RNA: Small nucleolar RNA SNORA9
RNA sequence: AUGCAGGUCUGUACUGCGAGGGCAGGCCCCCUGUGGCUCGACCCUUUCCUGAAGACCUGCUACAGCCACUUGGGGUGGUUUGAGGCCUCGCUGUGUGCCUCCAUGGCGAGGUUAUAGAAACCUCAGACACAC
Numbered sequence: 001a002u003g004c005a006g007g008u009c010u011g012u013a014c015u016g017c018g019a020g021g022g023c024a025g026g027c028c029c030c031c032u033g034u035g036g037c038u039c040g041a042c043c044c045u046u047u048c049c050u051g052a053a054g055a056c057c058u059g060c061u062a063c064a065g066c067c068a069c070u071u072g073g074g075g076u077g078g079u080u081u082g083a084g085g086c087c088u089c090g091c092u093g094u095g096u097g098c099c100u101c102c103a104u105g106g107c108g109a110g111g112u113u114a115u116a117g118a119a120a121c122c123u124c125a126g127a128c129a130c131a132c
Stems, first nucleotide, its partner, number of pairs: 003060005019045003025038004071125005086111006093104003